[Rfam]
RNA sequence: GGUGGGUCAUCGCCUAAUCGCCCUCACCAACGGGGGCGAACCGGGGAACCACUUCCUCCGUGCGACCGAUGUGAAUCGUGCGUGCGGAUUGGGGUGAAUCGCACAAGGAUUGAAGCUUCGGGCUUCUUUCUGCCUGCGUAGGGUCCAUCUCUUCCGGCCCGAACCCGACAGCUAACCCGGUCGGCGAUAAGGGAGAACAA
Numbered sequence: 001g002g003u004g005g006g007u008c009a010u011c012g013c014c015u016a017a018u019c020g021c022c023c024u025c026a027c028c029a030a031c032g033g034g035g036g037c038g039a040a041c042c043g044g045g046g047a048a049c050c051a052c053u054u055c056c057u058c059c060g061u062g063c064g065a066c067c068g069a070u071g072u073g074a075a076u077c078g079u080g081c082g083u084g085c086g087g088a089u090u091g092g093g094g095u096g097a098a099u100c101g102c103a104c105a106a107g108g109a110u111u112g113a114a115g116c117u118u119c120g121g122g123c124u125u126c127u128u129u130c131u132g133c134c135u136g137c138g139u140a141g142g143g144u145c146c147a148u149c150u151c152u153u154c155c156g157g158c159c160c161g162a163a164c165c166c167g168a169c170a171g172c173u174a175a176c177c178c179g180g181u182c183g184g185c186g187a188u189a190a191g192g193g194a195g196a197a198c199a200a
Stems, first nucleotide, its partner, number of pairs: 011186004018039008040181006050091002092166003100138004141160004

A member of the RNA family "c-di-AMP riboswitch aptamer (ydaO/yuaA leader)" from Gordonia sihwensis, 200 nucleotides long. A search with the family's covariance model found it, with a score of 78 bits. The organism belongs to Gordonia sihwensis, within Bacteria.